[Rfam]
Rfam assigns this 94-nucleotide sequence from Cocleimonas flava to the family "Glycine riboswitch aptamer". NCBI's taxonomy places the organism under Bacteria, Pseudomonadota, Gammaproteobacteria, Thiotrichales, Cocleimonas.

RNA sequence: CUCUGGAGAGUGAAACACAGUUUCCACCGAAGGGUUUAACCUAAUUUUGCUUAGUCGCAUAUAUUUAGGGAAUCUCUCAGGUACAAGGACAGAG
Number, nucleotide and partner (000 for none) at each position: 001c094002u093003c092004u091005g090006g000007a000008g000009a000010g000011u000012g024013a023014a022015a021016c000017a000018c000019a000020g000021u015022u014023u013024c012025c000026a082027c081028c080029g078030a077031a000032g000033g076034g075035u000036u000037u000038a000039a000040c069041c068042u067043a066044a065045u000046u000047u000048u000049g000050c000051u000052u000053a000054g000055u000056c000057g000058c000059a000060u000061a000062u000063a000064u000065u044066u043067a042068g041069g040070g000071a000072a000073u000074c000075u034076c033077u030078c029079a000080g028081g027082u026083a000084c000085a000086a000087g000088g000089a000090c005091a004092g003093a002094g001